The family of this 382-nucleotide sequence from Clostridium sp. CAG:226 is "Bacterial RNase P class A". A search with the family's covariance model found it, with a score of 271 bits. Its family is annotated with dimeric ribonuclease P complex, ribonuclease P activity and tRNA processing in the Gene Ontology. Taxonomically the source falls in Clostridium (Bacteria, Bacillati, Eubacteriales, Clostridiaceae). It is annotated as a ribozyme.
[Rfam]
RNA sequence: UGAGUAAGCCAUGCGGUCGCGUGCGGAACUGAGUUUUCAGUCAUCCGCAUGAGGAAAGUCCGGGCUCCGCAGGGCAGGGUGCCGGAUAACGUCCGGCGGGGGCGACCCCAGGGAUAGUGCAACAGAGAUAUACCGCCGCGUUUACUCGCGGUAAGGAUGGAAAGGCGAGGUAAGAGCUCACCGGCGGGGCGGGUAACCGUUCCGUCCUGUAAACCCCACCCGGUGCAAGAUUGGAAUGGGAGCGCAUGCGCUUUUGCGCAGAAAUGGCUGCCCGUUAGGCUCCUGAUAAUCGCGCGAGUGCGGCGGCAACGCCGUGCCAAGAUAGAUGGCCGCACGCCGGUUUUACCGGCCGACAGAACCCGGCUUAUUGCUUGCUCAUAUG
Numbered sequence: 001u002g003a004g005u006a007a008g009c010c011a012u013g014c015g016g017u018c019g020c021g022u023g024c025g026g027a028a029c030u031g032a033g034u035u036u037u038c039a040g041u042c043a044u045c046c047g048c049a050u051g052a053g054g055a056a057a058g059u060c061c062g063g064g065c066u067c068c069g070c071a072g073g074g075c076a077g078g079g080u081g082c083c084g085g086a087u088a089a090c091g092u093c094c095g096g097c098g099g100g101g102g103c104g105a106c107c108c109c110a111g112g113g114a115u116a117g118u119g120c121a122a123c124a125g126a127g128a129u130a131u132a133c134c135g136c137c138g139c140g141u142u143u144a145c146u147c148g149c150g151g152u153a154a155g156g157a158u159g160g161a162a163a164g165g166c167g168a169g170g171u172a173a174g175a176g177c178u179c180a181c182c183g184g185c186g187g188g189g190c191g192g193g194u195a196a197c198c199g200u201u202c203c204g205u206c207c208u209g210u211a212a213a214c215c216c217c218a219c220c221c222g223g224u225g226c227a228a229g230a231u232u233g234g235a236a237u238g239g240g241a242g243c244g245c246a247u248g249c250g251c252u253u254u255u256g257c258g259c260a261g262a263a264a265u266g267g268c269u270g271c272c273c274g275u276u277a278g279g280c281u282c283c284u285g286a287u288a289a290u291c292g293c294g295c296g297a298g299u300g301c302g303g304c305g306g307c308a309a310c311g312c313c314g315u316g317c318c319a320a321g322a323u324a325g326a327u328g329g330c331c332g333c334a335c336g337c338c339g340g341u342u343u344u345a346c347c348g349g350c351c352g353a354c355a356g357a358a359c360c361c362g363g364c365u366u367a368u369u370g371c372u373u374g375c376u377c378a379u380a381u382g
Stems, first nucleotide, its partner, number of pairs: 001378009011368001012334007020051008056366003060363005065225001067223002072273004077221005082096005097111001098109004112216002117214002119210003133156002135152006164182002167179003184206001185204008229291004239283005266276003298317008